[Rfam]
This 79-nucleotide RNA sequence from Blautia faecicola belongs to the Rfam family "ZMP/ZTP riboswitch aptamer (pfl RNA motif)".

RNA sequence: AGUAACUUAUAUGACUGACGGAAGUGGAGUUUACCACGGGGAGUAUAAGGGUUUGAAGCCGACCGUCUGGGCAGUGUAG
Numbered sequence: 001a002g003u004a005a006c007u008u009a010u011a012u013g014a015c016u017g018a019c020g021g022a023a024g025u026g027g028a029g030u031u032u033a034c035c036a037c038g039g040g041g042a043g044u045a046u047a048a049g050g051g052u053u054u055g056a057a058g059c060c061g062a063c064c065g066u067c068u069g070g071g072c073a074g075u076g077u078a079g
Stems, first nucleotide, its partner, number of pairs: 006049007015040002017067005024037004058072003
The base pairs follow the family's consensus structure, which is taken from published work. Gene Ontology terms of the family: regulation of purine nucleotide biosynthetic process and one-carbon metabolic process.